[Rfam]
RNA sequence: GUACCUUAUCCCCACUACGGAACGUUCGGCACGUACCUGCCGAUGGAGGACCACAUG
Numbered sequence: 001g002u003a004c005c006u007u008a009u010c011c012c013c014a015c016u017a018c019g020g021a022a023c024g025u026u027c028g029g030c031a032c033g034u035a036c037c038u039g040c041c042g043a044u045g046g047a048g049g050a051c052c053a054c055a056u057g
Base pairs, nucleotide, nucleotide: 009049010048012046013045014044026043027042028041029040030039031038

A member of the RNA family "msiK RNA" from Corynebacterium sp. HMSC08D02, 57 nucleotides long.
A search with the family's covariance model found it, with a score of 48 bits.
It is annotated as a cis-regulatory element.